A member of the RNA family "Small nucleolar RNA Z206" from Paspalum vaginatum, 120 nucleotides long. The literature on the family includes a 2003 paper in Nucleic Acids Res by Chen et al., "The high diversity of snoRNAs in plants: identification and comparative study of 120 snoRNA genes from Oryza sativa". The source organism's lineage runs through Eukaryota, Streptophytina, Tracheophyta, Panicoideae and Paspalum. A search with the family's covariance model found it, with a score of 78 bits. By type it is a C/D-box small nucleolar RNA.
[Rfam]
RNA sequence: GCCGCCGGAGGAGGUCACGGUGACUGCGACGGUGCGGAGGUUCACGGUGCUGCUGGGUGGCACCGACGCGGUGCGCCCACAGGCGGACGGCGGGGUGAUGUGGUUCCCACCACAAGCGGC
Numbered sequence: 001g002c003c004g005c006c007g008g009a010g011g012a013g014g015u016c017a018c019g020g021u022g023a024c025u026g027c028g029a030c031g032g033u034g035c036g037g038a039g040g041u042u043c044a045c046g047g048u049g050c051u052g053c054u055g056g057g058u059g060g061c062a063c064c065g066a067c068g069c070g071g072u073g074c075g076c077c078c079a080c081a082g083g084c085g086g087a088c089g090g091c092g093g094g095g096u097g098a099u100g101u102g103g104u105u106c107c108c109a110c111c112a113c114a115a116g117c118g119g120c
Base pairs, nucleotide, nucleotide: 001120002119003118004117005116